[Rfam]
RNA sequence: GCGCUCGCUCCGGGGUGCGAGCGGCAUCGUGCCGCCUCGCUGAGAUGGCAUCCACCAAACCCGUGAACUUGAACCGGUUCGUACCGGCGUAAGGAGAGCCGCAUGCAGUCCC
Numbered sequence: 001g002c003g004c005u006c007g008c009u010c011c012g013g014g015g016u017g018c019g020a021g022c023g024g025c026a027u028c029g030u031g032c033c034g035c036c037u038c039g040c041u042g043a044g045a046u047g048g049c050a051u052c053c054a055c056c057a058a059a060c061c062c063g064u065g066a067a068c069u070u071g072a073a074c075c076g077g078u079u080c081g082u083a084c085c086g087g088c089g090u091a092a093g094g095a096g097a098g099c100c101g102c103a104u105g106c107a108g109u110c111c112c
Stems, first nucleotide, its partner, number of pairs: 007099004011063004016057001017040005047056002068093004074087004
RNA: TPP riboswitch aptamer (THI element)
Organism: Ramlibacter cellulosilyticus